RNA sequence: AAGAUAAUAUAAUAAGAAACUCGUAUAUCAUGGGAAAUAUGGUCCCGAAGUUUCUACCUGCUAGCCGUAAAAUAGCAGACUACGAGGCAAUUUGUUUUUUUA
Numbered sequence: 001a002a003g004a005u006a007a008u009a010u011a012a013u014a015a016g017a018a019a020c021u022c023g024u025a026u027a028u029c030a031u032g033g034g035a036a037a038u039a040u041g042g043u044c045c046c047g048a049a050g051u052u053u054c055u056a057c058c059u060g061c062u063a064g065c066c067g068u069a070a071a072a073u074a075g076c077a078g079a080c081u082a083c084g085a086g087g088c089a090a091u092u093u094g095u096u097u098u099u100u101u102a
Stems, first nucleotide, its partner, number of pairs: 020086006031047005058078006
RNA: Purine riboswitch aptamer